[Rfam]
RNA sequence: GCCCAGGUGGCGAAAUUGGUAGACGCACAGGACUUAAAAUCCUGCGGACGUAAAAAUCCGUGCCGGUUCGACUCCGGCCCUGGGCA
Numbered sequence: 001g002c003c004c005a006g007g008u009g010g011c012g013a014a015a016u017u018g019g020u021a022g023a024c025g026c027a028c029a030g031g032a033c034u035u036a037a038a039a040u041c042c043u044g045c046g047g048a049c050g051u052a053a054a055a056a057u058c059c060g061u062g063c064c065g066g067u068u069c070g071a072c073u074c075c076g077g078c079c080c081u082g083g084g085c086a
Stems, first nucleotide, its partner, number of pairs: 001085007010026003028044005062078005